[Rfam]
RNA sequence: CCCCAUUCCCCGGGGAGCCAUGUGGCUGAGAGGCGGGCGUUACGCCCCGCGACCCGCUGAACCUGAACCGACUAAUAUCGGCGGAGGGAGGGUUUUGGUCGCGGCA
Numbered sequence: 001c002c003c004c005a006u007u008c009c010c011c012g013g014g015g016a017g018c019c020a021u022g023u024g025g026c027u028g029a030g031a032g033g034c035g036g037g038c039g040u041u042a043c044g045c046c047c048c049g050c051g052a053c054c055c056g057c058u059g060a061a062c063c064u065g066a067a068c069c070g071a072c073u074a075a076u077a078u079c080g081g082c083g084g085a086g087g088g089a090g091g092g093u094u095u096u097g098g099u100c101g102c103g104g105c106a
Stems, first nucleotide, its partner, number of pairs: 008092003011056004017026003033050005062087003068081004